[Rfam]
RNA sequence: AGGCUAAUGAUGAUAAUUCAUUUAUCUUAGCGGAUUUCAGUGAGAUUUUAUAGUCAAUGAUCUGAUUGUUACACACACUGAGGCCU
Numbered sequence: 001a002g003g004c005u006a007a008u009g010a011u012g013a014u015a016a017u018u019c020a021u022u023u024a025u026c027u028u029a030g031c032g033g034a035u036u037u038c039a040g041u042g043a044g045a046u047u048u049u050a051u052a053g054u055c056a057a058u059g060a061u062c063u064g065a066u067u068g069u070u071a072c073a074c075a076c077a078c079u080g081a082g083g084c085c086u
Stems, first nucleotide, its partner, number of pairs: 001086005
The record is an 86-nucleotide sequence from Durio zibethinus, which matches "Small nucleolar RNA R11/Z151" in Rfam. The family's RNA type in Rfam is C/D-box small nucleolar RNA. Lineage of the source: Eukaryota > Magnoliopsida > malvids > Malvaceae > Durio. The literature on the family includes a 2001 paper in J Mol Biol by Barneche et al., "Identification of 66 box C/D snoRNAs in Arabidopsis thaliana: extensive gene duplications generated multiple isoforms predicting new ribosomal RNA 2'-O-methylation sites". The base pairs follow the family's consensus structure, which was predicted with PFOLD. Gene Ontology terms of the family: nucleolus and RNA processing.